A member of the RNA family "t44 RNA" from Methylobacter tundripaludum, 117 nucleotides long. Rfam describes the family as follows. This family consists of a number of bacterial RNA genes of between 135 and 170 bases in length. The family's RNA type in Rfam is small RNA. For this family Rfam cites "Transcriptome analysis of Escherichia coli using high-density oligonucleotide probe arrays" (Tjaden et al., Nucleic Acids Res, 2002).
RNA sequence: UUCGUUUUUGAACUAAUACUCACACCUAUCGUCACGUUUGGAAGGGUGCCGGUGUAACCUGACCUCGAAAGAGGAGGGUUGUUACUGGUUUCCAGGCGGGAUAGGUGGAGGCGUAAC
Numbered sequence: 001u002u003c004g005u006u007u008u009u010g011a012a013c014u015a016a017u018a019c020u021c022a023c024a025c026c027u028a029u030c031g032u033c034a035c036g037u038u039u040g041g042a043a044g045g046g047u048g049c050c051g052g053u054g055u056a057a058c059c060u061g062a063c064c065u066c067g068a069a070a071g072a073g074g075a076g077g078g079u080u081g082u083u084a085c086u087g088g089u090u091u092c093c094a095g096g097c098g099g100g101a102u103a104g105g106u107g108g109a110g111g112c113g114u115a116a117c
Base pairs, nucleotide, nucleotide: 023107024106025105026104027103028102029101030100035098036097037096038095039094040093041092042091043090048089049088050087051086052085053084054083